[Rfam]
RNA sequence: UGUCUCCUCCACCUCUCCAGGUGGAUUCAACCCAAGGCAGCAAUGCCUUGGGUUUUUUUA
Number, nucleotide and partner (000 for none) at each position: 001u000002g000003u000004c000005u000006c000007c000008u025009c024010c023011a022012c021013c020014u019015c000016u000017c000018c000019a014020g013021g012022u011023g010024g009025a008026u000027u000028c000029a000030a053031c052032c051033c050034a049035a048036g047037g046038c000039a000040g000041c000042a000043a000044u000045g000046c037047c036048u035049u034050g033051g032052g031053u030054u000055u000056u000057u000058u000059u000060a000
Shown here is a 60-nucleotide RNA from Rhizobacter sp., a member of the family "Betaproteobacteria toxic small RNA". The base pairs follow the family's consensus structure, which was predicted with WAR. Overexpression in amino aid rich medium attenuates growth, suggesting role in repressing amino acid intake and metabolism. Lineage of the source: Bacteria > Betaproteobacteria > Burkholderiales > Sphaerotilaceae > Rhizobacter.